Annotation:
Rfam assigns this 436-nucleotide part of an RNA from Acaryochloris marina to the family "Bacterial large subunit ribosomal RNA". The organism belongs to Acaryochloris marina, within Bacteria.
[Rfam]
RNA sequence: CUCCCCGAAAUGUGUUUAGGCGCAGCGGUUGAGAUUAUAGCGGGGGGGUAGAGCACUGAAUCGGUGCGGGCUGCGAGAGCGGUACCAAAUCGAAUCAAACUCCGAAUACCCCGUGUACACUCAACUAGUAAGACGGUGGGGGAUAAGCUUCAUCGUCGAGAGGGAAACAGCCCAGAUCACCAGCUAAGGCCCCUAAAUUGUUACUAAGUGGCAAAGGAGGUGGGAUUGCAGAGACAACCAGGAGGUUUGCCUAGAAGCAGCCAUCCUUGAAAGAGUGCGUAAUAGCUCACUGGUCAAGCGAUCCUGCGCCGAAAAUGAACGGGACUAAGUAACAUGCCGAAGCUGUGAACUUGUACUUGUACAAGUGGUAGGGGAGCGUUCUACGUUAGGUUGAAGCAUUAGCGUGAGCAGGUGUGGACGAAGUAGAAGUGAGAAU
Numbered sequence: 001c002u003c004c005c006c007g008a009a010a011u012g013u014g015u016u017u018a019g020g021c022g023c024a025g026c027g028g029u030u031g032a033g034a035u036u037a038u039a040g041c042g043g044g045g046g047g048g049u050a051g052a053g054c055a056c057u058g059a060a061u062c063g064g065u066g067c068g069g070g071c072u073g074c075g076a077g078a079g080c081g082g083u084a085c086c087a088a089a090u091c092g093a094a095u096c097a098a099a100c101u102c103c104g105a106a107u108a109c110c111c112c113g114u115g116u117a118c119a120c121u122c123a124a125c126u127a128g129u130a131a132g133a134c135g136g137u138g139g140g141g142g143a144u145a146a147g148c149u150u151c152a153u154c155g156u157c158g159a160g161a162g163g164g165a166a167a168c169a170g171c172c173c174a175g176a177u178c179a180c181c182a183g184c185u186a187a188g189g190c191c192c193c194u195a196a197a198u199u200g201u202u203a204c205u206a207a208g209u210g211g212c213a214a215a216g217g218a219g220g221u222g223g224g225a226u227u228g229c230a231g232a233g234a235c236a237a238c239c240a241g242g243a244g245g246u247u248u249g250c251c252u253a254g255a256a257g258c259a260g261c262c263a264u265c266c267u268u269g270a271a272a273g274a275g276u277g278c279g280u281a282a283u284a285g286c287u288c289a290c291u292g293g294u295c296a297a298g299c300g301a302u303c304c305u306g307c308g309c310c311g312a313a314a315a316u317g318a319a320c321g322g323g324a325c326u327a328a329g330u331a332a333c334a335u336g337c338c339g340a341a342g343c344u345g346u347g348a349a350c351u352u353g354u355a356c357u358u359g360u361a362c363a364a365g366u367g368g369u370a371g372g373g374g375a376g377c378g379u380u381c382u383a384c385g386u387u388a389g390g391u392u393g394a395a396g397c398a399u400u401a402g403c404g405u406g407a408g409c410a411g412g413u414g415u416g417g418a419c420g421a422a423g424u425a426g427a428a429g430u431g432a433g434a435a436u
Stems, first nucleotide, its partner, number of pairs: 001376006011024005026128001027126007036119001037116003041113005051103001052101002057097003061093004068086002070083005132157010162173003177348004182344003188338003197335001199334006216310002220307010237294005243267003249261002268272001273288001277286002349366007377431001379428006387421001389419001396415005402409002
Dot-bracket structure: ((((((....(((((....))))).((((((((..((((.(((((.....(((...(((.((((...(((((((....))))).))...)))).)))..)).).....))))))))..)))))))).)...((((((((((......))))))))))....(((......)))...((((.(((...(((......(.((((((...........((..((((((((((.......(((((.(((...((.........))...)))(...)(...((......)).).)))))...)))))))))).))..................))))))))))...)))))))(((((((....)))))))....))))))(.((((((..(.(......(((((.((....)).)))))...).).))))))..).....